[Rfam]
Source information:
The family of this 120-nucleotide RNA from Sulfuriroseicoccus oceanibius is "SAM-I/IV (S-adenosyl methionine) riboswitch aptamer". On this family, see Trausch et al., PNAS 2014: "Structural basis for diversity in the SAM clan of riboswitches". NCBI's taxonomy places the organism under Bacteria, Pseudomonadati, Verrucomicrobiota, Verrucomicrobiia, Sulfuriroseicoccus.
RNA sequence: AACCAUCAUCAGGAGCGACCUUUCGGGGUCCGGCAACCUGGCUUGUGGAAAGCCAAGGUGCCUAGAUGAUGGAGAGCGCGAGUUGUCCAUCACGAUGAGCGAUCAAAGCAUUGUCUUUGU
Numbered sequence: 001a002a003c004c005a006u007c008a009u010c011a012g013g014a015g016c017g018a019c020c021u022u023u024c025g026g027g028g029u030c031c032g033g034c035a036a037c038c039u040g041g042c043u044u045g046u047g048g049a050a051a052g053c054c055a056a057g058g059u060g061c062c063u064a065g066a067u068g069a070u071g072g073a074g075a076g077c078g079c080g081a082g083u084u085g086u087c088c089a090u091c092a093c094g095a096u097g098a099g100c101g102a103u104c105a106a107a108g109c110a111u112u113g114u115c116u117u118u119g120u
Base pairs, nucleotide, nucleotide: 006072007071008070009069010068015031017030018029019028020027021026032062033061034060037058038057039056040054041053042052045115048112074104075103077101078100079099